[Rfam]
RNA sequence: GCGAUGAGCUGAUUUGCAUAGGACAAGAUUGACACGCCUUUUGGCAAAGCACUAUGUGGAGUGCUGUCUCUUGCCGCAAAUAUACGAAAAGACGUCCUUUUGAGGACGUC
Numbered sequence: 001g002c003g004a005u006g007a008g009c010u011g012a013u014u015u016g017c018a019u020a021g022g023a024c025a026a027g028a029u030u031g032a033c034a035c036g037c038c039u040u041u042u043g044g045c046a047a048a049g050c051a052c053u054a055u056g057u058g059g060a061g062u063g064c065u066g067u068c069u070c071u072u073g074c075c076g077c078a079a080a081u082a083u084a085c086g087a088a089a090a091g092a093c094g095u096c097c098u099u100u101u102g103a104g105g106a107c108g109u110c
Stems, first nucleotide, its partner, number of pairs: 014079004024073005031068003036045002048065002051062003091110008
Shown here is a 110-nucleotide sequence from Salimicrobium jeotgali, a member of the family "BsrF".
Pairs were carried over by alignment from the consensus structure, which was predicted with WAR.
Lineage of the source: Bacteria > Bacillati > Bacillota > Bacillaceae > Salimicrobium.
It is annotated as a small RNA.